[Rfam]
RNA sequence: CGCCCACGGGCCUGAUCCUCUGCUCAGCCCUGGUUAAGUGCAAGGUGAGCAAAGUUUCAGGUGUGUGGGAGG
Numbered sequence: 001c002g003c004c005c006a007c008g009g010g011c012c013u014g015a016u017c018c019u020c021u022g023c024u025c026a027g028c029c030c031u032g033g034u035u036a037a038g039u040g041c042a043a044g045g046u047g048a049g050c051a052a053a054g055u056u057u058c059a060g061g062u063g064u065g066u067g068g069g070a071g072g
Stems, first nucleotide, its partner, number of pairs: 003069005010062006018054002021051001023049004029045003
Dot-bracket structure: ..(((((..((((((..((.(.((((..(((...........))))))).).))..))))))..)))))...